[Rfam]
The family of this 178-nucleotide RNA sequence from Rivularia sp. PCC 7116 is "Antisense RNA which regulates isiA expression". The organism belongs to Rivularia, within Bacteria. On this family, see Duhring et al., Proc Natl Acad Sci U S A 2006: "An internal antisense RNA regulates expression of the photosynthesis gene isiA".

RNA sequence: GAUAACCAUAGAUAACCAGAGGGUUAAGAGUUGGAUUCGUGACGGUGCGGACAGUCUCAGAUGCAGCAUCAUAGAGUCCGCCAAAGAACAUUGCUUGAGCAGCUAACAACAAUGCUCCGACUCCUAAAAACAAUAGAUGAUGUCCCAAAAUAAUCCCUAAUUGCUUGGCAUCAUCCCA
Dot-bracket structure: .......................................................................................................................................((((((...((((................)))).))))))...